[Rfam]
RNA: mraW RNA
Organism: Aeromicrobium sp. A1-2
RNA sequence: UGACGUUCGUGCGGCGAGAUCUGCGCCCGCACGGUUCUGACAUCACUUCCCCGGUGUCAGACCCGGCGGUCGCGGAUCUGGCCACACGACACCAGCCGG
Numbered sequence: 001u002g003a004c005g006u007u008c009g010u011g012c013g014g015c016g017a018g019a020u021c022u023g024c025g026c027c028c029g030c031a032c033g034g035u036u037c038u039g040a041c042a043u044c045a046c047u048u049c050c051c052c053g054g055u056g057u058c059a060g061a062c063c064c065g066g067c068g069g070u071c072g073c074g075g076a077u078c079u080g081g082c083c084a085c086a087c088g089a090c091a092c093c094a095g096c097c098g099g
Base pairs, nucleotide, nucleotide: 010086011085013083014082015081018078019077021075022074023073024072025071027069028068029067030066032065033064034063036061037060038059039058040057041056042055043054